[Rfam]
RNA sequence: CUGAAUAUUUUUUAUACAACCCGCUAAAAAGUUGCUCGAAAAAGAAACAGCGCCUAGAAUUUUUUUUGCUUCUUGCGCUACGUCAGUUUACUUACUACAAGUAAUGGGUAGUAUGUACGCCGGCUAUUUCCUCACUCUGAGGUGA
Numbered sequence: 001c002u003g004a005a006u007a008u009u010u011u012u013u014a015u016a017c018a019a020c021c022c023g024c025u026a027a028a029a030a031g032u033u034g035c036u037c038g039a040a041a042a043a044g045a046a047a048c049a050g051c052g053c054c055u056a057g058a059a060u061u062u063u064u065u066u067u068g069c070u071u072c073u074u075g076c077g078c079u080a081c082g083u084c085a086g087u088u089u090a091c092u093u094a095c096u097a098c099a100a101g102u103a104a105u106g107g108g109u110a111g112u113a114u115g116u117a118c119g120c121c122g123g124c125u126a127u128u129u130c131c132u133c134a135c136u137c138u139g140a141g142g143u144g145a
Stems, first nucleotide, its partner, number of pairs: 038078001042074004049070004082124003086120002089117003093113006100105001128145002131142002

The record is a 145-nucleotide RNA sequence from Pseudomonas protegens, which matches "Pseudomonas sRNA P14" in Rfam. For this family Rfam cites "Identification of 17 Pseudomonas aeruginosa sRNAs and prediction of sRNA-encoding genes in 10 diverse pathogens using the bioinformatic tool sRNAPredict2" (Livny et al., Nucleic Acids Res, 2006). NCBI's taxonomy places the organism under Bacteria, Pseudomonadati, Gammaproteobacteria, Pseudomonadaceae, Pseudomonas protegens. By type it is a small RNA.